Rfam assigns this 142-nucleotide RNA from Oceanisphaera arctica to the family "Molybdenum/Tungsten riboswitch aptamer (Moco RNA motif)". Gene Ontology terms of the family: regulation of gene expression, molybdenum ion binding and tungstate binding. Taxonomically the source falls in Oceanisphaera (Bacteria, Pseudomonadati, Pseudomonadota, Aeromonadaceae).
RNA sequence: AAACGUCAAAAACUCCGAGUCUGGUGGACCUACGUUGACCCAGGUCAAUAAGGUUGCCAGACCGUUCAGCCACCGGCUGUAAGGGUUGGGAGAGAAAUGUCCCUGCCUCCCGUAUUUGGAAAGGUGUUUAUGUUUGAAUUAC
Numbered sequence: 001a002a003a004c005g006u007c008a009a010a011a012a013c014u015c016c017g018a019g020u021c022u023g024g025u026g027g028a029c030c031u032a033c034g035u036u037g038a039c040c041c042a043g044g045u046c047a048a049u050a051a052g053g054u055u056g057c058c059a060g061a062c063c064g065u066u067c068a069g070c071c072a073c074c075g076g077c078u079g080u081a082a083g084g085g086u087u088g089g090g091a092g093a094g095a096a097a098u099g100u101c102c103c104u105g106c107c108u109c110c111c112g113u114a115u116u117u118g119g120a121a122a123g124g125u126g127u128u129u130a131u132g133u134u135u136g137a138a139u140u141a142c
Base pairs, nucleotide, nucleotide: 011128012127013126015124016123019062020061021060022059023058024057025056026055028054029053030052034049035048036047037046038045039044067079068078069077070076083108084107085106086105088103089102090101091100093098109119110118

On this family, see Regulski et al., Mol Microbiol 2008: "in molybdenum cofactor and tungsten cofactor metabolism".
The match comes from Rfam's covariance-model search (88 bits).